The family of this 65-nucleotide RNA sequence from Gordonia asplenii is "Fluoride riboswitch aptamer (crcB RNA motif)". The base pairs follow the family's consensus structure, which is taken from published work. It scores 35 bits against the family's covariance model. The organism belongs to Gordonia, within Bacteria.

[Rfam]
RNA sequence: UCGAAUAUCGGCGAUGAAGCUCGCCGUUGACCGCGCCGCAUGGCGUUGAUGGCUUCUACUCCACU
Numbered sequence: 001u002c003g004a005a006u007a008u009c010g011g012c013g014a015u016g017a018a019g020c021u022c023g024c025c026g027u028u029g030a031c032c033g034c035g036c037c038g039c040a041u042g043g044c045g046u047u048g049a050u051g052g053c054u055u056c057u058a059c060u061c062c063a064c065u
Base pairs, nucleotide, nucleotide: 010025011024012023013022016056017055018054019053020052021051033046034045035044036043